[Rfam]
RNA sequence: AGUAUCAGGGGAUAAAACCAUGAAACAAUCUUAGGACACCUUCUAACACACAGUGCCUAUUUUCCUGUGAAUGAGAAGGCAUUUAUAUUAUGAUGAUACG
Numbered sequence: 001a002g003u004a005u006c007a008g009g010g011g012a013u014a015a016a017a018c019c020a021u022g023a024a025a026c027a028a029u030c031u032u033a034g035g036a037c038a039c040c041u042u043c044u045a046a047c048a049c050a051c052a053g054u055g056c057c058u059a060u061u062u063u064c065c066u067g068u069g070a071a072u073g074a075g076a077a078g079g080c081a082u083u084u085a086u087a088u089u090a091u092g093a094u095g096a097u098a099c100g
Stems, first nucleotide, its partner, number of pairs: 002099006044050001